[Rfam]
RNA sequence: GGUAGUAGCAAAUAUUCAAAUAAGAGCUUUGAAGUCCAAAGUGGAGCAGGGUUCCAUGGGAACAGCAGUUGAACAUGAGUCAGUCGGUCCUAAGCAAUAGGCGAGUACCGCUUUGAAAGGGUGAGUGAUGGCCUUCGUUGCCCGCAGCCGAUCAAAAGGGAGUCAGGUUCAGAUCUCUGAAUCCAGAGUGGUAGAGACGCCAUGAGGCACCCAGUGCGGUGACGCAACCGAUCCCAGAGAAGCCAGCAGGAGCCCCGGUGAGAGUUCUCUUCGUUAUGAAGGGCUGGGUGCCCUGGAAUGGGUUCACCCUGAGAGAGGGUCCUGUGCCUUGGAAAGAGUCACAGUUCAGGCAGCAUCCGGUGGCAGUGAAAAAACAGGGGAGAGGGUGUAAGUCUCAUGCAGGGCAAUACCCAUAUCUGCAGCAGGUCUCCCAGGUGAACAGCCUCUGGCAUGU
Numbered sequence: 001g002g003u004a005g006u007a008g009c010a011a012a013u014a015u016u017c018a019a020a021u022a023a024g025a026g027c028u029u030u031g032a033a034g035u036c037c038a039a040a041g042u043g044g045a046g047c048a049g050g051g052u053u054c055c056a057u058g059g060g061a062a063c064a065g066c067a068g069u070u071g072a073a074c075a076u077g078a079g080u081c082a083g084u085c086g087g088u089c090c091u092a093a094g095c096a097a098u099a100g101g102c103g104a105g106u107a108c109c110g111c112u113u114u115g116a117a118a119g120g121g122u123g124a125g126u127g128a129u130g131g132c133c134u135u136c137g138u139u140g141c142c143c144g145c146a147g148c149c150g151a152u153c154a155a156a157a158g159g160g161a162g163u164c165a166g167g168u169u170c171a172g173a174u175c176u177c178u179g180a181a182u183c184c185a186g187a188g189u190g191g192u193a194g195a196g197a198c199g200c201c202a203u204g205a206g207g208c209a210c211c212c213a214g215u216g217c218g219g220u221g222a223c224g225c226a227a228c229c230g231a232u233c234c235c236a237g238a239g240a241a242g243c244c245a246g247c248a249g250g251a252g253c254c255c256c257g258g259u260g261a262g263a264g265u266u267c268u269c270u271u272c273g274u275u276a277u278g279a280a281g282g283g284c285u286g287g288g289u290g291c292c293c294u295g296g297a298a299u300g301g302g303u304u305c306a307c308c309c310u311g312a313g314a315g316a317g318g319g320u321c322c323u324g325u326g327c328c329u330u331g332g333a334a335a336g337a338g339u340c341a342c343a344g345u346u347c348a349g350g351c352a353g354c355a356u357c358c359g360g361u362g363g364c365a366g367u368g369a370a371a372a373a374a375c376a377g378g379g380g381a382g383a384g385g386g387u388g389u390a391a392g393u394c395u396c397a398u399g400c401a402g403g404g405c406a407a408u409a410c411c412c413a414u415a416u417c418u419g420c421a422g423c424a425g426g427u428c429u430c431c432c433a434g435g436u437g438a439a440c441a442g443c444c445u446c447u448g449g450c451a452u453g454u
Stems, first nucleotide, its partner, number of pairs: 015033006034452002036449002043431004049411002055077004063071002087405001089159002094153001096112001098110001100109002119143006163180005183403002186400001203397006215226004233379003237375001242364004247359001249357002252354002255349001257347001260274001262272002280330005290320005299311004417426002433445004